[Rfam]
RNA sequence: CCACGGAAGCAGCUUCAACCACACAGGCAUACGGGGGCAGGGACGGGGGACCCAGAUCCGGUCCGGCAGUUGCGGACCUUGGGGUGAAGUCACCUUUUGGCGACCGGGCACACCUUCCCGCCCGAACCCGACAGCUAACCUCGCAGGCGUGCCGGAGGGAUAUC
Numbered sequence: 001c002c003a004c005g006g007a008a009g010c011a012g013c014u015u016c017a018a019c020c021a022c023a024c025a026g027g028c029a030u031a032c033g034g035g036g037g038c039a040g041g042g043a044c045g046g047g048g049g050a051c052c053c054a055g056a057u058c059c060g061g062u063c064c065g066g067c068a069g070u071u072g073c074g075g076a077c078c079u080u081g082g083g084g085u086g087a088a089g090u091c092a093c094c095u096u097u098u099g100g101c102g103a104c105c106g107g108g109c110a111c112a113c114c115u116u117c118c119c120g121c122c123c124g125a126a127c128c129c130g131a132c133a134g135c136u137a138a139c140c141u142c143g144c145a146g147g148c149g150u151g152c153c154g155g156a157g158g159g160a161u162a163u164c
Stems, first nucleotide, its partner, number of pairs: 001041002044143005053081002082129003090103002093100001106123004
RNA: c-di-AMP riboswitch aptamer (ydaO/yuaA leader)